About this RNA
This 122-nucleotide RNA sequence from Dehalobacter sp. 12DCB1 belongs to the Rfam family "c-di-GMP-I riboswitch aptamer". Gene Ontology term of the family: cyclic-di-GMP binding.
RNA sequence: UAAUGUGUUGGAGCAAACUUUACGAAAGUGAAGGACGCUAAAGUCAUGGGUCUAAAUUAGGGGAUUCGAAAUGCAUGUAAUGCGUUUCCAGGAUAUUCUGACAGGAUUGCCAGACUACAAGG
Dot-bracket structure: ...........(.(...((((((....))))))...).)..((((.((((((....((((((.................................))))))...)))..)))))))......